[Rfam]
RNA sequence: CAACCACGAGACGAAGUGAGUGGGUCAUAGUGGAUGCUUAAUUGCGUGACUAGACCCAGGAAAGUCCCCGGGCCCAUUACUGUAGAGAUGCAGGCUCGCAAACGAGAGUGAUCUUCGAGUCGAAGGGAUUAAACUUGCACUUGGUGCACAGGUGGGCUGAGACAUGCGUGGAGCCUUUAUCCCCUUCGCUGAAGCAAAUUUAGCCAAUUCAACACAGUUAUUCACUUGGUCCCUUGUGGAUUAACAGAACGGGGCUUACGAUUUCGUGGUU
Numbered sequence: 001c002a003a004c005c006a007c008g009a010g011a012c013g014a015a016g017u018g019a020g021u022g023g024g025u026c027a028u029a030g031u032g033g034a035u036g037c038u039u040a041a042u043u044g045c046g047u048g049a050c051u052a053g054a055c056c057c058a059g060g061a062a063a064g065u066c067c068c069c070g071g072g073c074c075c076a077u078u079a080c081u082g083u084a085g086a087g088a089u090g091c092a093g094g095c096u097c098g099c100a101a102a103c104g105a106g107a108g109u110g111a112u113c114u115u116c117g118a119g120u121c122g123a124a125g126g127g128a129u130u131a132a133a134c135u136u137g138c139a140c141u142u143g144g145u146g147c148a149c150a151g152g153u154g155g156g157c158u159g160a161g162a163c164a165u166g167c168g169u170g171g172a173g174c175c176u177u178u179a180u181c182c183c184c185u186u187c188g189c190u191g192a193a194g195c196a197a198a199u200u201u202a203g204c205c206a207a208u209u210c211a212a213c214a215c216a217g218u219u220a221u222u223c224a225c226u227u228g229g230u231c232c233c234u235u236g237u238g239g240a241u242u243a244a245c246a247g248a249a250c251g252g253g254g255c256u257u258a259c260g261a262u263u264u265c266g267u268g269g270u271u
Base pairs, nucleotide, nucleotide: 002271003270004269005268006267007266008265009264010263011262014227015226016225017224018223019222022057023056024055025054030045031044032043033042035040062257063256064255066254067253068252069251081092082091083090084089095106096105097104098103135198136197141192142191143190144189145188146187150185151184152183154176155175156174157173164169229241230240231239232238
RNA: RNase MRP